This 386-nucleotide sequence from Xaviernesmea oryzae belongs to the Rfam family "Alphaproteobacteria transfer-messenger RNA". For this family Rfam cites "The tmRNA Website: invasion by an intron" (Williams, Nucleic Acids Res, 2002). Bacterial tmRNA, also known as 10Sa RNA or SsrA, is named for its dual tRNA and mRNA-like properties. Its role is to liberate the mRNA from a stalled ribosome. To accomplish this part of the tmRNA is used as a reading frame that ends in a translation stop signal. The broken mRNA is replaced in the ribosome by the tmRNA and translation of the tmRNA leads to addition of a proteolysis tag to the incomplete protein enabling recognition by a protease. Rfam classes the family as a non-coding RNA gene. The organism belongs to Xaviernesmea, within Bacteria. A search with the family's covariance model found it, with a score of 302 bits. The base pairs follow the family's consensus structure, which is taken from published work.
RNA sequence: GCCCUUUUCAUCGCGGCGCCGAGCGCCUAUAUGUUCGCUGUCGUCGCAAGGCGACUAUGGCAAUAAACGAACGAUGGAAUAAGCCUAUUGGACCCGGGGGCGGUACCCGGCGCCUCCACCAAAAACCGGUCUAAUCGCCGAUGUCUCGGCGCUUUACGACAGCUGACCGGCUUUUGAUGGGGGCGAAAUAGGAUCGACAAGGGUGUAAAGAUCGCUUUUUUGCUCGGCAUGAUACCACCGUCAUCGGGUCACACUAGUAGUUGCCAACGACAACUAUGCGGAAGCUCGUCUCGCUGCCUAAUGGCGGUGUGACACUUCAAAUCAAGUCCUAAGGGGUCGCACUCUUAGGCGGGGUCCGAAGGCACCUGGCAACAGAAGCCUUCACU
Numbered sequence: 001g002c003c004c005u006u007u008u009c010a011u012c013g014c015g016g017c018g019c020c021g022a023g024c025g026c027c028u029a030u031a032u033g034u035u036c037g038c039u040g041u042c043g044u045c046g047c048a049a050g051g052c053g054a055c056u057a058u059g060g061c062a063a064u065a066a067a068c069g070a071a072c073g074a075u076g077g078a079a080u081a082a083g084c085c086u087a088u089u090g091g092a093c094c095c096g097g098g099g100g101c102g103g104u105a106c107c108c109g110g111c112g113c114c115u116c117c118a119c120c121a122a123a124a125a126c127c128g129g130u131c132u133a134a135u136c137g138c139c140g141a142u143g144u145c146u147c148g149g150c151g152c153u154u155u156a157c158g159a160c161a162g163c164u165g166a167c168c169g170g171c172u173u174u175u176g177a178u179g180g181g182g183g184c185g186a187a188a189u190a191g192g193a194u195c196g197a198c199a200a201g202g203g204u205g206u207a208a209a210g211a212u213c214g215c216u217u218u219u220u221u222g223c224u225c226g227g228c229a230u231g232a233u234a235c236c237a238c239c240g241u242c243a244u245c246g247g248g249u250c251a252c253a254c255u256a257g258u259a260g261u262u263g264c265c266a267a268c269g270a271c272a273a274c275u276a277u278g279c280g281g282a283a284g285c286u287c288g289u290c291u292c293g294c295u296g297c298c299u300a301a302u303g304g305c306g307g308u309g310u311g312a313c314a315c316u317u318c319a320a321a322u323c324a325a326g327u328c329c330u331a332a333g334g335g336g337u338c339g340c341a342c343u344c345u346u347a348g349g350c351g352g353g354g355u356c357c358g359a360a361g362g363c364a365c366c367u368g369g370c371a372a373c374a375g376a377a378g379c380c381u382u383c384a385c386u
Stems, first nucleotide, its partner, number of pairs: 040055005059224005069217002072214004084203003088200003094110005111185007225240003230251003235247002352367004358383006